[Rfam]
RNA: Bacterial RNase P class A
Organism: Pseudohongiella acticola
RNA sequence: CGAGUCGGCCAGGCAGUCGCUGCCAGAUCUGCGUCUAUUACCGUUCAGACGGUGAAUGAGGCACCUGGUGGAGGAAAGUCCGGGCUCCACAGAGCAGAACGCCAGGUAACGCCUGGGAGGCGAAAGCCUACGGAAAGUGCAGCAGAGAGUAGACCGCCAACCCCGGCUCAGGCCGGGCGGUAAGGGUGAAAGGGUGCGGUAAGAGCGCACCGCGCGACUGGUAACAGAUCGUGGCACGGUAAACCCCGUUCGGAGCAAGGCCAAAUAGGGAUCCAAUGGUGCGGCUCGCACUGGAUUCGGGUAGGCUGCUUGAGGCCAGUAGUGAUGCUGGUCCCAGAUGAAUGACUGUCCCCGACAGAACCCGGCUUAUCGGCCGACUCGAUUA
Numbered sequence: 001c002g003a004g005u006c007g008g009c010c011a012g013g014c015a016g017u018c019g020c021u022g023c024c025a026g027a028u029c030u031g032c033g034u035c036u037a038u039u040a041c042c043g044u045u046c047a048g049a050c051g052g053u054g055a056a057u058g059a060g061g062c063a064c065c066u067g068g069u070g071g072a073g074g075a076a077a078g079u080c081c082g083g084g085c086u087c088c089a090c091a092g093a094g095c096a097g098a099a100c101g102c103c104a105g106g107u108a109a110c111g112c113c114u115g116g117g118a119g120g121c122g123a124a125a126g127c128c129u130a131c132g133g134a135a136a137g138u139g140c141a142g143c144a145g146a147g148a149g150u151a152g153a154c155c156g157c158c159a160a161c162c163c164c165g166g167c168u169c170a171g172g173c174c175g176g177g178c179g180g181u182a183a184g185g186g187u188g189a190a191a192g193g194g195u196g197c198g199g200u201a202a203g204a205g206c207g208c209a210c211c212g213c214g215c216g217a218c219u220g221g222u223a224a225c226a227g228a229u230c231g232u233g234g235c236a237c238g239g240u241a242a243a244c245c246c247c248g249u250u251c252g253g254a255g256c257a258a259g260g261c262c263a264a265a266u267a268g269g270g271a272u273c274c275a276a277u278g279g280u281g282c283g284g285c286u287c288g289c290a291c292u293g294g295a296u297u298c299g300g301g302u303a304g305g306c307u308g309c310u311u312g313a314g315g316c317c318a319g320u321a322g323u324g325a326u327g328c329u330g331g332u333c334c335c336a337g338a339u340g341a342a343u344g345a346c347u348g349u350c351c352c353c354g355a356c357a358g359a360a361c362c363c364g365g366c367u368u369a370u371c372g373g374c375c376g377a378c379u380c381g382a383u384u385a
Base pairs, nucleotide, nucleotide: 001381002380003379004378005377006376007375008374009373010372011370012350013349014348015347016346017345018344020071021070022069023068024067025066026065028063076368077367078366080365081364082363083362084361085255086254087253088252092287093286094285095284097251098250099249100248101247102116103115104114105113106112117131118129119128120127121126132246133245137244138243139240140239154185155184156181157180158179162177163176164175165174166173167172193211194210195209196208197207198206212235213233214232215231216230217229218227219226220225259307260306261305262304269298270297271296272295273294274293278292279291280290281289282288314333315332316331317330318329319328320327321326